[Rfam]
Rfam assigns this 281-nucleotide RNA sequence from Nannospalax galili to the family "Mason-Pfizer monkey virus packaging signal". Taxonomically the source falls in Nannospalax (Eukaryota, Dipnotetrapodomorpha, Rodentia, Myomorpha). It scores 152 bits against the family's covariance model. Its family is annotated with viral genome packaging in the Gene Ontology. Rfam 15.1 lists 2,921 matches to the family in 53 species. Rfam's curators write: This family represents a group of sequences that are related to the Mason-Pfizer monkey virus (MPMV) packaging signal. It is annotated as a cis-regulatory element. The family's consensus secondary structure was predicted with PFOLD.
RNA sequence: UAGUGCCCAACGUGACAGCUGGAUAUGGGGGCAUAUUGUGAGGGAGAUGACGGAAAAAGGAAGGAUUGCACUCGUUAAAUUUCAAGCAAUUCGGAGACACGCUACGGGAGCCUGCCACGACCAAACCGAAGGUAAGUUGUGCCGUCCGAUCAUGGGGCAAGAAUUAAGCCAGCAUCAGAUUUAUGUUAUGCAAUUGAGGGAGGCUCUCAAGACAAGAGGACUAAAGGUUAAGACUGUGGAUUUAUUUCAUUUCUUUGAUUUUGUAAAGGACAUUUGUCCCU
Numbered sequence: 001u002a003g004u005g006c007c008c009a010a011c012g013u014g015a016c017a018g019c020u021g022g023a024u025a026u027g028g029g030g031g032c033a034u035a036u037u038g039u040g041a042g043g044g045a046g047a048u049g050a051c052g053g054a055a056a057a058a059g060g061a062a063g064g065a066u067u068g069c070a071c072u073c074g075u076u077a078a079a080u081u082u083c084a085a086g087c088a089a090u091u092c093g094g095a096g097a098c099a100c101g102c103u104a105c106g107g108g109a110g111c112c113u114g115c116c117a118c119g120a121c122c123a124a125a126c127c128g129a130a131g132g133u134a135a136g137u138u139g140u141g142c143c144g145u146c147c148g149a150u151c152a153u154g155g156g157g158c159a160a161g162a163a164u165u166a167a168g169c170c171a172g173c174a175u176c177a178g179a180u181u182u183a184u185g186u187u188a189u190g191c192a193a194u195u196g197a198g199g200g201a202g203g204c205u206c207u208c209a210a211g212a213c214a215a216g217a218g219g220a221c222u223a224a225a226g227g228u229u230a231a232g233a234c235u236g237u238g239g240a241u242u243u244a245u246u247u248c249a250u251u252u253c254u255u256u257g258a259u260u261u262u263g264u265a266a267a268g269g270a271c272a273u274u275u276g277u278c279c280c281u
Base pairs, nucleotide, nucleotide: 006031007030008029012026013025014024036050037049038048039047086133087132090129091128103119106116107115140159141158142157145156146155147154148153166207168204169203170202216256217255218254219253220252225243226242227241228240229239266281268279269278270277271276